[Rfam]
RNA sequence: GCACGAUCAUGGCAAACCCGCUUGAAAAACGGGGACGCAAAGCUAUAGGGGCUAAAGGAUUUGCCAUUGAAGCAAAUGUCCAUGCCAGCCAGCUGCCGAA
Number, nucleotide and partner (000 for none) at each position: 001g000002c000003a000004c000005g000006a000007u000008c000009a000010u000011g000012g038013c037014a000015a000016a000017c033018c032019c031020g030021c000022u029023u028024g000025a000026a000027a000028a023029a022030c020031g019032g018033g017034g000035a000036c000037g013038c012039a000040a000041a094042g093043c092044u091045a000046u000047a000048g090049g089050g086051g085052c084053u000054a000055a000056a000057g080058g000059a079060u078061u000062u000063g000064c000065c000066a000067u000068u000069g000070a000071a000072g000073c000074a000075a000076a000077u000078g060079u059080c057081c000082a000083u000084g052085c051086c050087a000088g000089c049090c048091a044092g043093c042094u041095g000096c000097c000098g000099a000100a000